[Rfam]
RNA sequence: AGAUGGUCCAAAGGUAGUCAGUUAUCUCAAUUGAUUAUUCAGUCAAUUACAGAUCAAACUCCUUGUCCUACUCUUUCCCCAUUCUCACUACUGCACUUGAUGUCUUAAC
Numbered sequence: 001a002g003a004u005g006g007u008c009c010a011a012a013g014g015u016a017g018u019c020a021g022u023u024a025u026c027u028c029a030a031u032u033g034a035u036u037a038u039u040c041a042g043u044c045a046a047u048u049a050c051a052g053a054u055c056a057a058a059c060u061c062c063u064u065g066u067c068c069u070a071c072u073c074u075u076u077c078c079c080c081a082u083u084c085u086c087a088c089u090a091c092u093g094c095a096c097u098u099g100a101u102g103u104c105u106u107a108a109c
Stems, first nucleotide, its partner, number of pairs: 001105005007100002010098002014094002016089003020085002041072003045069001
RNA: Y RNA
Organism: Pan troglodytes